[Rfam]
RNA sequence: AGAGUCUGGGGGUUUCGGAGGAUGUGAGUGCCCUGCGAGCGUUCACGGACGCUAUGACCAGGUACUCAGCACCUCCUGGAGACGAACCACAC
Numbered sequence: 001a002g003a004g005u006c007u008g009g010g011g012g013u014u015u016c017g018g019a020g021g022a023u024g025u026g027a028g029u030g031c032c033c034u035g036c037g038a039g040c041g042u043u044c045a046c047g048g049a050c051g052c053u054a055u056g057a058c059c060a061g062g063u064a065c066u067c068a069g070c071a072c073c074u075c076c077u078g079g080a081g082a083c084g085a086a087c088c089a090c091a092c
Stems, first nucleotide, its partner, number of pairs: 007086001010083001013080003017076002020073002030066001032062004038053006